The family of this 52-nucleotide RNA from Solanum commersonii is "MIR1886 microRNA precursor family". The source organism's lineage runs through Eukaryota, Mesangiospermae, Solanales, Solanoideae and Solanum. The family has 4 seed sequences and 1,053 matches in Rfam 15.1. Pairs were carried over by alignment from the consensus structure, which was predicted with RNAalifold.
RNA sequence: UGAGAUGAAAUCAGCAUUUGAACAUGCGAUUUCAUGUUGAUUUCAGCUCAUG
Numbered sequence: 001u002g003a004g005a006u007g008a009a010a011u012c013a014g015c016a017u018u019u020g021a022a023c024a025u026g027c028g029a030u031u032u033c034a035u036g037u038u039g040a041u042u043u044c045a046g047c048u049c050a051u052g
Stems, first nucleotide, its partner, number of pairs: 001050004006045012018029003